[Rfam]
RNA sequence: GAAGACCCUGUUGAGCUUGACUCUAUCCUGGGGUUGUUGGGCGACUUAGGAGGUGUAGCAUAGGUGGGAGCUUCCGAGCGUCACUGAAAUACCACCACUCCCAAGAUCGUCCUGCUGAUCUUGUUAUCGUAAGCGUGCAUGGACCCACUCCCGUGGCGUGGUUUGUGCGCGGCAGGCAUACUCGAGUAAGUGUAGGAUCCGCGCGAUUCCUCGCUUGCUUGGCUUCUUACGCACGAGAGACACCCCCAGGUGGGGAGUUCGGCUGGGGCGGUACACCCGUCAAAAGACAACGCGGGUGUCCUAUGGUCAGCUCAACGAGGACAGAACUCUCGUGUGGUGUAGUUAAGGGUAGAAGCUGACUUGAUUCGGGCUCUCAGUAGGAGCUUGAGCUGCGAAAGCAUGGCCUACCGAUCCUUUAGCCUUCUGGGUGUGAAGCUAGAGGUGUCAGAAAAGUUACCACAGGGAUAACUGGUUUGUGGCAGCCAAGCGUUCAUAGCGACGUUGCUUUUUGAUUCUUCGAUGUCGGCUCUUCCUAUCAUUGUGAAGCAGGAUUCACAAAGCGUUGGAUUGUUCACCCACAGACAGGGAACGUGAGCUGGG
Numbered sequence: 001g002a003a004g005a006c007c008c009u010g011u012u013g014a015g016c017u018u019g020a021c022u023c024u025a026u027c028c029u030g031g032g033g034u035u036g037u038u039g040g041g042c043g044a045c046u047u048a049g050g051a052g053g054u055g056u057a058g059c060a061u062a063g064g065u066g067g068g069a070g071c072u073u074c075c076g077a078g079c080g081u082c083a084c085u086g087a088a089a090u091a092c093c094a095c096c097a098c099u100c101c102c103a104a105g106a107u108c109g110u111c112c113u114g115c116u117g118a119u120c121u122u123g124u125u126a127u128c129g130u131a132a133g134c135g136u137g138c139a140u141g142g143a144c145c146c147a148c149u150c151c152c153g154u155g156g157c158g159u160g161g162u163u164u165g166u167g168c169g170c171g172g173c174a175g176g177c178a179u180a181c182u183c184g185a186g187u188a189a190g191u192g193u194a195g196g197a198u199c200c201g202c203g204c205g206a207u208u209c210c211u212c213g214c215u216u217g218c219u220u221g222g223c224u225u226c227u228u229a230c231g232c233a234c235g236a237g238a239g240a241c242a243c244c245c246c247c248a249g250g251u252g253g254g255g256a257g258u259u260c261g262g263c264u265g266g267g268g269c270g271g272u273a274c275a276c277c278c279g280u281c282a283a284a285a286g287a288c289a290a291c292g293c294g295g296g297u298g299u300c301c302u303a304u305g306g307u308c309a310g311c312u313c314a315a316c317g318a319g320g321a322c323a324g325a326a327c328u329c330u331c332g333u334g335u336g337g338u339g340u341a342g343u344u345a346a347g348g349g350u351a352g353a354a355g356c357u358g359a360c361u362u363g364a365u366u367c368g369g370g371c372u373c374u375c376a377g378u379a380g381g382a383g384c385u386u387g388a389g390c391u392g393c394g395a396a397a398g399c400a401u402g403g404c405c406u407a408c409c410g411a412u413c414c415u416u417u418a419g420c421c422u423u424c425u426g427g428g429u430g431u432g433a434a435g436c437u438a439g440a441g442g443u444g445u446c447a448g449a450a451a452a453g454u455u456a457c458c459a460c461a462g463g464g465a466u467a468a469c470u471g472g473u474u475u476g477u478g479g480c481a482g483c484c485a486a487g488c489g490u491u492c493a494u495a496g497c498g499a500c501g502u503u504g505c506u507u508u509u510u511g512a513u514u515c516u517u518c519g520a521u522g523u524c525g526g527c528u529c530u531u532c533c534u535a536u537c538a539u540u541g542u543g544a545a546g547c548a549g550g551a552u553u554c555a556c557a558a559a560g561c562g563u564u565g566g567a568u569u570g571u572u573c574a575c576c577c578a579c580a581g582a583c584a585g586g587g588a589a590c591g592u593g594a595g596c597u598g599g600g
Base pairs, nucleotide, nucleotide: 007463008462009461010460012459013458014455015454016453017452018451020258021257022256023255027250028249029248030247031246032245033244036115037114039112040111041110042109043108044107046104047103049101050100051099052098063096064095065094066093067092070079071078119238120237121236122235123234128231129230130229131228136178137177138176140174195225196224198222199221261274262272263271264270275297276296277295278294279293280292300403301402306360307359308358309357310356311355313337315333316332317331318330319329320328339350340349365389366388367387368386369385370384371383372382373381391400392399393398414441415440416439417438418437419436421435422434423433424432472513473512474511476510478506479505480504481503482502483501487497488496524599525597526596527595528594529591530588531587532586533585534584537562540557541556542555543554544553545552564578565577566576568574
This 600-nucleotide part of an RNA from Bigelowiella natans belongs to the Rfam family "Eukaryotic large subunit ribosomal RNA". The source organism's lineage runs through Eukaryota, Rhizaria, Cercozoa, Chlorarachniophyceae and Bigelowiella. The sequence is in the family's curated seed alignment. Gene Ontology terms of the family: ribosome and structural constituent of ribosome.